[Rfam]
RNA sequence: UGUCUCCUCCAUGUCUCCUCUGAUAUGGAUUCCGCUCGCCACUUAGGUGGUUUUUUU
Numbered sequence: 001u002g003u004c005u006c007c008u009c010c011a012u013g014u015c016u017c018c019u020c021u022g023a024u025a026u027g028g029a030u031u032c033c034g035c036u037c038g039c040c041a042c043u044u045a046g047g048u049g050g051u052u053u054u055u056u057u
Base pairs, nucleotide, nucleotide: 008029009028010027011026012025013024014023015022033050037049038048039047040046
Dot-bracket structure: .......((((((((......))))))))...(...((((.....))))).......
Shown here is a 57-nucleotide RNA sequence from Burkholderia cenocepacia, a member of the family "Betaproteobacteria toxic small RNA". It is one of the family's seed sequences. Rfam 15.1 lists 951 matches to the family in 508 species. Overexpression in amino aid rich medium attenuates growth, suggesting role in repressing amino acid intake and metabolism.